[Rfam]
RNA sequence: GGAUAUGAGGGUAAUCUGACUGUGAGAUCUGAUAUGCAUGGGCUGAUCUGACUGACCAAGCAGGUGUUUGCUUUCUUCCUCAGCAUUCCAUGCGUGUUCCUCCUGGUGCUGUGUGCUUGGUUAAUGAGGACAGCCUCCCCAAUAGACAUGGUUCAUUGGGCAAGGGUGUGUGGUAGCUGUGCUUCCCUGCUGAAAGCUCUAAGUAAGCUCAAGGUCCAUUUGUAGAUGAAUGUAAGGUAGUCAAGCAUCCAAUACUGAAGACAUCUCCAAAUGAGAAGCUGUAUGCAGCAAUCUUCCAGU
Numbered sequence: 001g002g003a004u005a006u007g008a009g010g011g012u013a014a015u016c017u018g019a020c021u022g023u024g025a026g027a028u029c030u031g032a033u034a035u036g037c038a039u040g041g042g043c044u045g046a047u048c049u050g051a052c053u054g055a056c057c058a059a060g061c062a063g064g065u066g067u068u069u070g071c072u073u074u075c076u077u078c079c080u081c082a083g084c085a086u087u088c089c090a091u092g093c094g095u096g097u098u099c100c101u102c103c104u105g106g107u108g109c110u111g112u113g114u115g116c117u118u119g120g121u122u123a124a125u126g127a128g129g130a131c132a133g134c135c136u137c138c139c140c141a142a143u144a145g146a147c148a149u150g151g152u153u154c155a156u157u158g159g160g161c162a163a164g165g166g167u168g169u170g171u172g173g174u175a176g177c178u179g180u181g182c183u184u185c186c187c188u189g190c191u192g193a194a195a196g197c198u199c200u201a202a203g204u205a206a207g208c209u210c211a212a213g214g215u216c217c218a219u220u221u222g223u224a225g226a227u228g229a230a231u232g233u234a235a236g237g238u239a240g241u242c243a244a245g246c247a248u249c250c251a252a253u254a255c256u257g258a259a260g261a262c263a264u265c266u267c268c269a270a271a272u273g274a275g276a277a278g279c280u281g282u283a284u285g286c287a288g289c290a291a292u293c294u295u296c297c298a299g300u
Base pairs, nucleotide, nucleotide: 001089002088003087006082007081008080009079010078011077013074014073018071024068025067027065028064029063030062031061033059035055037050038049041048097151098150101146102145103120104119105118106117108116109115121142122141128138129137130136176246177245178244182240183239185237186236188234189233190232197228200225203223204222205221206220207219275297277295278292280290281289282288
RNA: 7SK RNA